The family of this 80-nucleotide sequence is "SmY spliceosomal RNA".
RNA sequence: AUUCUAUUACCAAUCAAUACAGGGCCUUACCUAAGACCCGGUGUAAAAUUUUUGCAACCCUGUCCUUAGGGAUCAGGGUG
Numbered sequence: 001a002u003u004c005u006a007u008u009a010c011c012a013a014u015c016a017a018u019a020c021a022g023g024g025c026c027u028u029a030c031c032u033a034a035g036a037c038c039c040g041g042u043g044u045a046a047a048a049u050u051u052u053u054g055c056a057a058c059c060c061u062g063u064c065c066u067u068a069g070g071g072a073u074c075a076g077g078g079u080g
Stems, first nucleotide, its partner, number of pairs: 022039003026035003057079006063072003
Rfam 15.1 lists 408 matches to the family in 67 species. A reference for the family is Maroney et al. (1996), "Direct analysis of nematode cis- and trans-spliceosomes: a functional role for U5 snRNA in spliced leader addition trans-splicing and the identification of novel Sm snRNPs", RNA. Pairs were carried over by alignment from the consensus structure, which is taken from published work. It is annotated as a spliceosomal small nuclear RNA.